RNA sequence: AGUAAUGAGCGCCAGUGCCAAGCCCUGACUUAGCUGGCCGGCAACCCUCCAAGCGGCGGGGUGCCUCAGGUGAGUACUCGGCAUUCGUCUUCGAUACGCAAGCCCGAAGG
Numbered sequence: 001a002g003u004a005a006u007g008a009g010c011g012c013c014a015g016u017g018c019c020a021a022g023c024c025c026u027g028a029c030u031u032a033g034c035u036g037g038c039c040g041g042c043a044a045c046c047c048u049c050c051a052a053g054c055g056g057c058g059g060g061g062u063g064c065c066u067c068a069g070g071u072g073a074g075u076a077c078u079c080g081g082c083a084u085u086c087g088u089c090u091u092c093g094a095u096a097c098g099c100a101a102g103c104c105c106g107a108a109g110g
Stems, first nucleotide, its partner, number of pairs: 001078004009039001011038006021030002040065003045061003049056002081099002084096001085094003
Shown here is a 110-nucleotide RNA from Sinomonas atrocyanea, a member of the family "SAM (S-adenosyl methionine) riboswitch aptamer". The literature on the family includes a 2008 paper in RNA by Weinberg et al., "The aptamer core of SAM-IV riboswitches mimics the ligand-binding site of SAM-I riboswitches". It scores 74 bits against the family's covariance model. Pairs were carried over by alignment from the consensus structure, which is taken from published work.